[Rfam]
RNA: Alphaproteobacteria transfer-messenger RNA
Organism: Candidatus Fokinia solitaria
RNA sequence: GUACUUUACUAGCUAUUUUAAUGAUGAUACCAUAAAAGCGAUCGACGCAAGUCAGUCUAUGGUAAUAAAUACUCUCCGUAAUAAAUAUAAUGGACUCGAGGGCAGAACUCGACAUCUCCACCAAAGAGGGGGUGAAAUAGAUUCGACAUAUAUUCAAAGGGUGCAGCUUUUACUCAGCGUGAUGCAGCUGUAAAAUUGAUCGUAAAAAUAAAUGCAAACGACAACGUAAUGCAUGGAGAAGAGAGACUACAAACUGCUUUUGCAUAACAGUUUUCUCUGAACCGGCGGUUUUGGGGAGCCGAGCAACAGAAUUCCCCACG
Number, nucleotide and partner (000 for none) at each position: 001g000002u000003a000004c000005u000006u000007u000008a000009c000010u000011a000012g000013c000014u000015a000016u000017u000018u000019u000020a000021a000022u000023g000024a000025u000026g000027a000028u000029a000030c000031c000032a000033u000034a000035a000036a000037a000038g000039c000040g057041a056042u055043c000044g053045a052046c051047g000048c000049a000050a000051g046052u045053c044054a000055g042056u041057c040058u000059a000060u000061g174062g173063u172064a171065a170066u000067a000068a000069a000070u000071a000072c166073u165074c163075u000076c161077c160078g000079u000080a000081a000082u000083a000084a000085a000086u152087a151088u150089a000090a149091u148092g147093g000094a000095c000096u112097c111098g110099a109100g108101g000102g000103c000104a000105g000106a000107a000108c100109u099110c098111g097112a096113c134114a133115u132116c131117u130118c129119c128120a000121c000122c000123a000124a000125a000126g000127a000128g119129g118130g117131g116132g115133u114134g113135a000136a000137a000138u000139a000140g000141a000142u000143u000144c000145g000146a000147c092148a091149u090150a088151u087152a086153u000154u000155c000156a000157a000158a000159g000160g077161g076162u000163g074164c000165a073166g072167c000168u000169u000170u065171u064172a063173c062174u061175c190176a189177g188178c187179g000180u202181g201182a200183u000184g000185c198186a197187g178188c177189u176190g175191u000192a000193a000194a000195a000196u000197u186198g185199a000200u182201c181202g180203u000204a000205a000206a000207a000208a000209u000210a000211a000212a000213u000214g000215c000216a000217a000218a000219c000220g000221a000222c000223a000224a000225c000226g000227u000228a000229a000230u000231g000232c000233a000234u000235g000236g000237a000238g000239a000240a000241g000242a000243g000244a000245g000246a000247c000248u000249a000250c000251a000252a000253a000254c000255u000256g000257c000258u000259u000260u000261u000262g000263c000264a000265u000266a000267a000268c000269a000270g000271u000272u000273u000274u000275c000276u000277c000278u000279g000280a000281a000282c000283c000284g000285g000286c301287g300288g299289u298290u000291u000292u000293g316294g315295g314296g313297a312298g289299c288300c287301g286302a000303g000304c000305a000306a000307c000308a000309g000310a000311a000312u297313u296314c295315c294316c293317c000318a000319c000320g000